[Rfam]
RNA sequence: UCCCUGGGGCUGGUAAAAAGGAACCAGAUCAACCUGGAAAUGGAUUUGGUCCCCUUCAACCAGCUGCGGUGG
Number, nucleotide and partner (000 for none) at each position: 001u000002c000003c000004c069005u068006g067007g000008g065009g064010c063011u062012g061013g060014u059015a000016a000017a056018a055019a000020g052021g051022a050023a000024c049025c048026a047027g046028a045029u044030c043031a000032a000033c000034c000035u000036g000037g000038a000039a000040a000041u000042g000043g030044a029045u028046u027047u026048g025049g024050u022051c021052c020053c000054c000055u018056u017057c000058a000059a014060c013061c012062a011063g010064c009065u008066g000067c006068g005069g004070u000071g000072g000
Background: Shown here is a 72-nucleotide sequence from Pelodiscus sinensis, a member of the family "mir-133 microRNA precursor family". A reference for the family is Lagos-Quintana et al. (2002), "Identification of tissue-specific microRNAs from mouse", Curr Biol. Rfam's curators write: mir-133 was first experimentally characterised in mouse and homologues have since been discovered in several other species. The mature sequence is excised from the 3' arm of the hairpin.